Shown here is a 429-nucleotide sequence from Rhodopila globiformis, a member of the family "Bacterial RNase P class A".
RNA sequence: CCAGACAGCCGGACGACCGCGGUUGACGCUGAUCGCGUCAGCGGAGGAAAGUCCGGGCUCCACGGGAAAACGAUGCCGGCUAACGGCCGGCGGGGGCGACCCCAGGGACAGUGCCACAGAAAACAAACCGCCCGUGCAAGACCGACUCGCGCCAGCGAUCGCGUCCCGCGGGCAAGGGCGAAACGGUGCGGCAAGAGCGCACCGCGCCUCUGGCAACAGAGGCGGCAAGGUAAACCCCAUCGGGAGCAAGACCGAAUAGGGGUGGCGGCGAUGUGUGGGGAUUUCGAUCCCGUCACGAUCGCAGGGAUUUUCCCGUCCUGCCACCCGGGUUGGUCGCGUGAGGCGCGCCGCAAGACGCGUCCCAGAGGAAUGGUCGUCCCGCCCCGUCACAGGGGCGGACAGAACCCGGCUUACAGGCUGUCUGGCCCU
Numbered sequence: 001c002c003a004g005a006c007a008g009c010c011g012g013a014c015g016a017c018c019g020c021g022g023u024u025g026a027c028g029c030u031g032a033u034c035g036c037g038u039c040a041g042c043g044g045a046g047g048a049a050a051g052u053c054c055g056g057g058c059u060c061c062a063c064g065g066g067a068a069a070a071c072g073a074u075g076c077c078g079g080c081u082a083a084c085g086g087c088c089g090g091c092g093g094g095g096g097c098g099a100c101c102c103c104a105g106g107g108a109c110a111g112u113g114c115c116a117c118a119g120a121a122a123a124c125a126a127a128c129c130g131c132c133c134g135u136g137c138a139a140g141a142c143c144g145a146c147u148c149g150c151g152c153c154a155g156c157g158a159u160c161g162c163g164u165c166c167c168g169c170g171g172g173c174a175a176g177g178g179c180g181a182a183a184c185g186g187u188g189c190g191g192c193a194a195g196a197g198c199g200c201a202c203c204g205c206g207c208c209u210c211u212g213g214c215a216a217c218a219g220a221g222g223c224g225g226c227a228a229g230g231u232a233a234a235c236c237c238c239a240u241c242g243g244g245a246g247c248a249a250g251a252c253c254g255a256a257u258a259g260g261g262g263u264g265g266c267g268g269c270g271a272u273g274u275g276u277g278g279g280g281a282u283u284u285c286g287a288u289c290c291c292g293u294c295a296c297g298a299u300c301g302c303a304g305g306g307a308u309u310u311u312c313c314c315g316u317c318c319u320g321c322c323a324c325c326c327g328g329g330u331u332g333g334u335c336g337c338g339u340g341a342g343g344c345g346c347g348c349c350g351c352a353a354g355a356c357g358c359g360u361c362c363c364a365g366a367g368g369a370a371u372g373g374u375c376g377u378c379c380c381g382c383c384c385c386g387u388c389a390c391a392g393g394g395g396c397g398g399a400c401a402g403a404a405c406c407c408g409g410c411u412u413a414c415a416g417g418c419u420g421u422c423u424g425g426c427c428c429u
Stems, first nucleotide, its partner, number of pairs: 001425010011414001012378007020044001022042007049412003053409005058246004066313001068311002071242005076090005091105001092103004106237002111235002113231003128177002130173007185203006204226001205224008250335004260326006304319005342361006349354001
NCBI's taxonomy places the organism under Bacteria, Pseudomonadota, Alphaproteobacteria, Acetobacterales, Rhodopila. Rfam links the family to the GO terms ribonuclease P activity, tRNA processing and dimeric ribonuclease P complex.